The family of this 78-nucleotide sequence from Lymphocryptovirus humangamma4 is "mir-BART15 microRNA precursor family".

RNA sequence: UGUGCCGCUUGGAGGGAAACAUGACCACCUGAAGUCUGUUAACCAGGUCAGUGGUUUUGUUUCCUUGAUAGAGACACA
Numbered sequence: 001u002g003u004g005c006c007g008c009u010u011g012g013a014g015g016g017a018a019a020c021a022u023g024a025c026c027a028c029c030u031g032a033a034g035u036c037u038g039u040u041a042a043c044c045a046g047g048u049c050a051g052u053g054g055u056u057u058u059g060u061u062u063c064c065u066u067g068a069u070a071g072a073g074a075c076a077c078a
Stems, first nucleotide, its partner, number of pairs: 001078004006073001008071002013066009023057002026054001029051004035047004